A member of the RNA family "SAM riboswitch aptamer (S box leader)" from Virgibacillus oceani, 101 nucleotides long. The organism belongs to Virgibacillus, within Bacteria. A search with the family's covariance model found it, with a score of 90 bits. The base pairs follow the family's consensus structure, which is taken from published work.

[Rfam]
RNA sequence: UUCUUAUCCAGAGAGGUGGAGGGACUGGCCCUUUGAAGCCUCAGCAACAGGUUAUUUUAAUACUGUGCUAAUUCCAGAAGCGUAAAGCUUGAAGAUAAGAA
Numbered sequence: 001u002u003c004u005u006a007u008c009c010a011g012a013g014a015g016g017u018g019g020a021g022g023g024a025c026u027g028g029c030c031c032u033u034u035g036a037a038g039c040c041u042c043a044g045c046a047a048c049a050g051g052u053u054a055u056u057u058u059a060a061u062a063c064u065g066u067g068c069u070a071a072u073u074c075c076a077g078a079a080g081c082g083u084a085a086a087g088c089u090u091g092a093a094g095a096u097a098a099g100a101a
Stems, first nucleotide, its partner, number of pairs: 001101008013042005021031003025077004043069004048065002051061004073093001078090004